[Rfam]
RNA sequence: GAUGGUACGGAAAGCCUACUCCUCCUCCCAGGGUUUUCCGUAGGAUCGACAACACUCCUCCUCCCAGUUGUCGAUCGGUUCUUUUCGAAAGCCUGCCGCACCUCCUCCCGCGGCAGGCUUUUUCG
Numbered sequence: 001g002a003u004g005g006u007a008c009g010g011a012a013a014g015c016c017u018a019c020u021c022c023u024c025c026u027c028c029c030a031g032g033g034u035u036u037u038c039c040g041u042a043g044g045a046u047c048g049a050c051a052a053c054a055c056u057c058c059u060c061c062u063c064c065c066a067g068u069u070g071u072c073g074a075u076c077g078g079u080u081c082u083u084u085u086c087g088a089a090a091g092c093c094u095g096c097c098g099c100a101c102c103u104c105c106u107c108c109c110g111c112g113g114c115a116g117g118c119u120u121u122u123u124c125g
Base pairs, nucleotide, nucleotide: 007041008040009039011037012036013035014034015033016032017031044076045075046074047073048072049071050070051069052068053067089120090119091118092117093116094115095114096113097112098111099110
A member of the RNA family "Alphaproteobacterial ar14" from Arminella tumorigenes, 125 nucleotides long. Rfam describes the family as follows. Smr14C2 was renamed NfeR1 (Nodule Formation Efficiency RNA) highly expressed in salt stress and during the symbiotic interaction on legume roots. The base pairs follow the family's consensus structure. A reference for the family is del Val et al. (2012), "A survey of sRNA families in alpha-proteobacteria", RNA Biol. It is annotated as a small RNA. The organism belongs to Arminella, within Bacteria.